A member of the RNA family "Small nucleolar RNA snoR53Y" from Olea europaea, 86 nucleotides long.
The family has 7 seed sequences and 513 matches in Rfam 15.1.
It is annotated as a C/D-box small nucleolar RNA.
Its Rfam clan is "snoR53 clan".

RNA sequence: GUUCCCUGUGAUGUUUUUACACUGACCAUGCUAAUUCUGAUUAUUUUAUGAUUGAAAUCAGAAAUUUAGAAAUUUCUGAGGGAACA
Numbered sequence: 001g002u003u004c005c006c007u008g009u010g011a012u013g014u015u016u017u018u019a020c021a022c023u024g025a026c027c028a029u030g031c032u033a034a035u036u037c038u039g040a041u042u043a044u045u046u047u048a049u050g051a052u053u054g055a056a057a058u059c060a061g062a063a064a065u066u067u068a069g070a071a072a073u074u075u076c077u078g079a080g081g082g083a084a085c086a
Stems, first nucleotide, its partner, number of pairs: 001085007